[Rfam]
RNA sequence: GAAAGCACUAAAUGUAAGUUGCUCUGGAUAAGAGCAUCUGUUAAAUGACUAAAA
Numbered sequence: 001g002a003a004a005g006c007a008c009u010a011a012a013u014g015u016a017a018g019u020u021g022c023u024c025u026g027g028a029u030a031a032g033a034g035c036a037u038c039u040g041u042u043a044a045a046u047g048a049c050u051a052a053a054a
Base pairs, nucleotide, nucleotide: 013043014041015040016039020036021035022034023033024032025031
UnaL2 LINE 3' element: a 54-nucleotide RNA from Oncorhynchus kisutch. A reference for the family is Baba et al. (2004), "Solution structure of an RNA stem-loop derived from the 3' conserved region of eel LINE UnaL2", RNA. The eel long interspersed element (LINE) UnaL2 and its partner short interspersed element (SINE) share a conserved 3' tail containing a stem-loop that is critical for their retrotransposition. It is annotated as a cis-regulatory element.